[Rfam]
RNA sequence: CAUCCUGAAAGACGGUACUGGUAACAGACUGAAGCGGAAAGGUUUAUG
Numbered sequence: 001c002a003u004c005c006u007g008a009a010a011g012a013c014g015g016u017a018c019u020g021g022u023a024a025c026a027g028a029c030u031g032a033a034g035c036g037g038a039a040a041g042g043u044u045u046a047u048g
Stems, first nucleotide, its partner, number of pairs: 013031004018027003

Rfam assigns this 48-nucleotide RNA to the family "Zeta-pan RNA". The family's RNA type in Rfam is small RNA. Rfam's curators put it in the seed alignment.